[Rfam]
RNA sequence: AGUGAGAAUAGAGGUGCAAAAACCAUUAGUAAAUAAUCGGAGGACGAUGUAGCCUGUGAUGAUUAUUGAAAGGGGAAUUUGCCGAAGUGAUUUAGAAUUACAUUCUUCUCUGUCACUGGUCCUACAUUGAAAAAAUGUCGGGCUGUCAUAUAGUGCUACACUAUAUGGAGGGCUAUCUCACGC
Number, nucleotide and partner (000 for none) at each position: 001a000002g000003u000004g000005a000006g178007a000008a176009u175010a174011g173012a000013g000014g000015u000016g082017c081018a080019a079020a078021a000022a000023c075024c074025a000026u000027u000028a000029g000030u000031a000032a067033a066034u065035a064036a063037u062038c061039g060040g000041a000042g000043g000044a000045c000046g000047a000048u000049g000050u000051a000052g000053c000054c000055u000056g000057u000058g000059a000060u039061g038062a037063u036064u035065a034066u033067u032068g000069a000070a000071a000072g000073g000074g024075g023076a000077a000078u020079u019080u018081g017082c016083c000084g000085a000086a117087g116088u115089g114090a113091u112092u000093u000094a109095g108096a107097a106098u000099u000100a000101c000102a000103u000104u000105c000106u097107u096108c095109u094110c000111u000112g091113u090114c089115a088116c087117u086118g144119g143120u142121c141122c140123u000124a138125c137126a136127u135128u134129g000130a000131a000132a000133a000134a128135a127136u126137g125138u124139c000140g122141g121142g120143c119144u118145g000146u168147c167148a166149u165150a164151u163152a162153g000154u000155g000156c000157u000158a000159c000160a000161c000162u152163a151164u150165a149166u148167g147168g146169a000170g000171g000172g000173c011174u010175a009176u008177c000178u006179c000180a000181c000182g000183c000
RNA: Lysine riboswitch aptamer
Organism: Gracilibacillus kekensis